Shown here is a 317-nucleotide RNA sequence from Salarchaeum sp. JOR-1, a member of the family "Archaeal signal recognition particle RNA". The match comes from Rfam's covariance-model search (164 bits). Rfam classes the family as a non-coding RNA gene. The base pairs follow the family's consensus structure, which is taken from published work. Its Rfam clan is "SRP clan".

[Rfam]
RNA sequence: AAGUGGACUAGGCCGGGCGGUUUGGCCCCGCCCCACCCACCCGCACUACGGUCAUCAGCGGGGGCCGAACGCCGGGAGAGUCCGGGCCAACCCGCCCGGGCCCCGGAAGCCGACAGAGAAGCCUCGUCCUUCGGGGACGGCGGUCCGCGGCGCGCGCCUGCAGGGGCGUCGUCGUCGCGGUUCGCCGAUGGGACCCCGUCAGGCACGGAAGUGAGCAGCGGACCAUCGGACGUUCGCCGCUCGAAGGGUCGCGGGGCGGAGGAGGCGACCGGGACUACCCGAGCGGGACGGCUCGGGCGACCCCGGCACGUCCACCA
Numbered sequence: 001a002a003g004u005g006g007a008c009u010a011g012g013c014c015g016g017g018c019g020g021u022u023u024g025g026c027c028c029c030g031c032c033c034c035a036c037c038c039a040c041c042c043g044c045a046c047u048a049c050g051g052u053c054a055u056c057a058g059c060g061g062g063g064g065c066c067g068a069a070c071g072c073c074g075g076g077a078g079a080g081u082c083c084g085g086g087c088c089a090a091c092c093c094g095c096c097c098g099g100g101c102c103c104c105g106g107a108a109g110c111c112g113a114c115a116g117a118g119a120a121g122c123c124u125c126g127u128c129c130u131u132c133g134g135g136g137a138c139g140g141c142g143g144u145c146c147g148c149g150g151c152g153c154g155c156g157c158c159u160g161c162a163g164g165g166g167c168g169u170c171g172u173c174g175u176c177g178c179g180g181u182u183c184g185c186c187g188a189u190g191g192g193a194c195c196c197c198g199u200c201a202g203g204c205a206c207g208g209a210a211g212u213g214a215g216c217a218g219c220g221g222a223c224c225a226u227c228g229g230a231c232g233u234u235c236g237c238c239g240c241u242c243g244a245a246g247g248g249u250c251g252c253g254g255g256g257c258g259g260a261g262g263a264g265g266c267g268a269c270c271g272g273g274a275c276u277a278c279c280c281g282a283g284c285g286g287g288a289c290g291g292c293u294c295g296g297g298c299g300a301c302c303c304c305g306g307c308a309c310g311u312c313c314a315c316c317a
Stems, first nucleotide, its partner, number of pairs: 003315006011066004015033006040062005071307006080298005085292001087290001091287005097281004102273005109266003114261001121257007128247008136238001138236002140233003143182001145180008153171001154169006185229007196221004204213003